RNA sequence: UGCUGGCCGGAGCUCUUUUCACAUUGUGCUACUGUCUAACGUGUACCGAGCAGUGCAAUGUUAAAAGGGCAUCGGCCUUGUA
Numbered sequence: 001u002g003c004u005g006g007c008c009g010g011a012g013c014u015c016u017u018u019u020c021a022c023a024u025u026g027u028g029c030u031a032c033u034g035u036c037u038a039a040c041g042u043g044u045a046c047c048g049a050g051c052a053g054u055g056c057a058a059u060g061u062u063a064a065a066a067g068g069g070c071a072u073c074g075g076c077c078u079u080g081u082a
Stems, first nucleotide, its partner, number of pairs: 001082003005077006012070008022060009
RNA: mir-130 microRNA precursor family